Rfam assigns this 78-nucleotide RNA sequence from Calypte anna to the family "mir-456 microRNA precursor family". The literature on the family includes a 2006 paper in FEBS Lett by Xu et al., "Identification of microRNAs from different tissues of chicken embryo and adult chicken".
RNA sequence: GUGUGUGUAGGCUCACAUCUAUGUGAGCCUACAUGUGGAUUCCUAUAUCUGCAGGCUGGUUGGAUGGUUGUCAUGCAU
Numbered sequence: 001g002u003g004u005g006u007g008u009a010g011g012c013u014c015a016c017a018u019c020u021a022u023g024u025g026a027g028c029c030u031a032c033a034u035g036u037g038g039a040u041u042c043c044u045a046u047a048u049c050u051g052c053a054g055g056c057u058g059g060u061u062g063g064a065u066g067g068u069u070g071u072c073a074u075g076c077a078u
Stems, first nucleotide, its partner, number of pairs: 007071004016066005024059001026057005035052006
Rfam links the family to the GO terms RISC complex and miRNA-mediated post-transcriptional gene silencing. Pairs were carried over by alignment from the consensus structure, which was predicted with RNAalifold.